[Rfam]
RNA sequence: GUCGGUCCUCGGUAGUGACUUUCCGGUCCAGGCACGGUGUCCGUGUGCGAUACCCCGGCCGGAAAGUUUCGAUCGACGACCGCC
Numbered sequence: 001g002u003c004g005g006u007c008c009u010c011g012g013u014a015g016u017g018a019c020u021u022u023c024c025g026g027u028c029c030a031g032g033c034a035c036g037g038u039g040u041c042c043g044u045g046u047g048c049g050a051u052a053c054c055c056c057g058g059c060c061g062g063a064a065a066g067u068u069u070c071g072a073u074c075g076a077c078g079a080c081c082g083c084c
Base pairs, nucleotide, nucleotide: 001084003082004081005080006079007078009076010075011074012073013072017068018067019066020065021064022063023062024061025060026059027058028057
RNA: Actino-pnp RNA
Organism: Rhodococcus coprophilus